[Rfam]
RNA sequence: UCAAAUGAAAAUCACAACAUUCAUAUAUCAUCGAUAAUAAGGUUCGAAAGUUUCUACCCCUUGCCGUAAAUAUAGGGACUAUGAAGGUUGCACAAAUAAGA
Numbered sequence: 001u002c003a004a005a006u007g008a009a010a011a012u013c014a015c016a017a018c019a020u021u022c023a024u025a026u027a028u029c030a031u032c033g034a035u036a037a038u039a040a041g042g043u044u045c046g047a048a049a050g051u052u053u054c055u056a057c058c059c060c061u062u063g064c065c066g067u068a069a070a071u072a073u074a075g076g077g078a079c080u081a082u083g084a085a086g087g088u089u090g091c092a093c094a095a096a097u098a099a100g101a
Base pairs, nucleotide, nucleotide: 018087020085021084022083023082024081025080031047032046033045034044058077059076060075061074062072063071
RNA: Purine riboswitch aptamer
Organism: Turicibacter sp. H121